[Rfam]
Nucleotides: 130
Base pairs, nucleotide, nucleotide: 002059003058004057005056006055007054008053009052010051011050020045021044022043023042024040025039026038027037028036070124071123072122073121074120075119089104090103091102092101
Number, partner (000 for none) and nucleotide at each position: 001000u002059g003058g004057a005056c006055a007054u008053u009052u010051a011050u012000g013000u014000c015000u016000a017000u018000u019000c020045g021044g022043u023042u024040u025039c026038u027037u028036c029000u030000c031000c032000a033000g034000g035000u036028g037027a038026a039025g040024a041000a042023a043022a044021c045020u046000c047000u048000u049000u050011a051010u052009a053008a054007a055006u056005g057004u058003c059002c060000u061000a062000g063000a064000g065000a066000a067000a068000c069000a070124u071123a072122g073121u074120a075119g076000g077000u078000g079000u080000c081000u082000g083000u084000c085000c086000a087000g088000c089104c090103u091102u092101c093000g094000c095000a096000a097000g098000u099000g100000a101092g102091a103090a104089g105000g106000g107000u108000g109000g110000a111000u112000c113000g114000u115000u116000c117000c118000a119075c120074u121073a122072c123071u124070g125000a126000c127000a128000g129000u130000u
Rfam assigns this 130-nucleotide RNA sequence from Microcebus murinus to the family "Small Cajal body specific RNA 24". Taxonomically the source falls in Microcebus (Eukaryota, Sarcopterygii, Tetrapoda, Eutheria). The family's RNA type in Rfam is small Cajal body RNA. scaRNAs are a specific class of small nuclear RNAs which localise to the Cajal bodies and guide the modification of RNA polymerase II transcribed spliceosomal RNAs U1, U2, U4, U5 and U12. ACA12 belongs to the H/ACA box class of guide RNAs as it has the predicted hairpin-hinge-hairpin-tail structure,the conserved H/ACA-box motifs and is found associated with GAR1. Its family is annotated with Cajal body, RNA processing and nucleolus in the Gene Ontology.